Shown here is a 122-nucleotide RNA, a member of the family "Bacteroidete tryptophan peptide leader RNA".

RNA sequence: ACGUUUCUAUAUUUGCAACAAUGUUUAAAAUAACUGUACAUACUUGGUGGUGGAAUAACUUACGUCAAACGUCGUGAGCUAGCUACUAGUUUGUAUAAUCUAAUAUAUAAAAAAGGCUUGUC
Numbered sequence: 001a002c003g004u005u006u007c008u009a010u011a012u013u014u015g016c017a018a019c020a021a022u023g024u025u026u027a028a029a030a031u032a033a034c035u036g037u038a039c040a041u042a043c044u045u046g047g048u049g050g051u052g053g054a055a056u057a058a059c060u061u062a063c064g065u066c067a068a069a070c071g072u073c074g075u076g077a078g079c080u081a082g083c084u085a086c087u088a089g090u091u092u093g094u095a096u097a098a099u100c101u102a103a104u105a106u107a108u109a110a111a112a113a114a115g116g117c118u119u120g121u122c
Base pairs, nucleotide, nucleotide: 036101038099040096041095042094043093046090049087050086051085052084056081057080059078060077061076062072063071064070
The sequence is in the family's curated seed alignment.